[Rfam]
RNA sequence: AUUGCUUAAGGGAAAGAGGUUCUCCCAUGGCGUGACUUGCCUGAACUGCCGAAAGGCUGAUGACUUCUGCAAUCGC
Dot-bracket structure: .........[[[[..((((((.]]]].....................(((....)))....)))))).........
Numbered sequence: 001a002u003u004g005c006u007u008a009a010g011g012g013a014a015a016g017a018g019g020u021u022c023u024c025c026c027a028u029g030g031c032g033u034g035a036c037u038u039g040c041c042u043g044a045a046c047u048g049c050c051g052a053a054a055g056g057c058u059g060a061u062g063a064c065u066u067c068u069g070c071a072a073u074c075g076c
Stems, first nucleotide, its partner, number of pairs: 010026004016067006048057003

A member of the RNA family "Fluoride riboswitch aptamer (crcB RNA motif)" from Firmicutes bacterium CAG:145, 76 nucleotides long. It scores 38 bits against the family's covariance model. Pairs were carried over by alignment from the consensus structure, which is taken from published work.